[Rfam]
RNA: Actinobacteria sRNA Ms_IGR-5
Organism: Streptomyces marincola
RNA sequence: ACACGAGAAGGGAGGUGGUUCGGCAGAUGUAUGACAACCGGACGCGUGAGGUGACUGCGGCCUAACGGUCGCCGUUUCCACGACACGUGGCGCGCCGGCUCCGCCGGCCAAUCCCAAGCAGUCACCCGAUCCGCGGGCCGCCGGUAUCGUCCGGCCGGCUCCCCGGCGGGCGCGCACCGCGCCCACCGGGGGCUCAGGCCCGCGGAUCGUUUUUU
Numbered sequence: 001a002c003a004c005g006a007g008a009a010g011g012g013a014g015g016u017g018g019u020u021c022g023g024c025a026g027a028u029g030u031a032u033g034a035c036a037a038c039c040g041g042a043c044g045c046g047u048g049a050g051g052u053g054a055c056u057g058c059g060g061c062c063u064a065a066c067g068g069u070c071g072c073c074g075u076u077u078c079c080a081c082g083a084c085a086c087g088u089g090g091c092g093c094g095c096c097g098g099c100u101c102c103g104c105c106g107g108c109c110a111a112u113c114c115c116a117a118g119c120a121g122u123c124a125c126c127c128g129a130u131c132c133g134c135g136g137g138c139c140g141c142c143g144g145u146a147u148c149g150u151c152c153g154g155c156c157g158g159c160u161c162c163c164c165g166g167c168g169g170g171c172g173c174g175c176a177c178c179g180c181g182c183c184c185a186c187c188g189g190g191g192g193c194u195c196a197g198g199c200c201c202g203c204g205g206a207u208c209g210u211u212u213u214u215u
Stems, first nucleotide, its partner, number of pairs: 015058005060109001062107002066103001068099004073094003127209013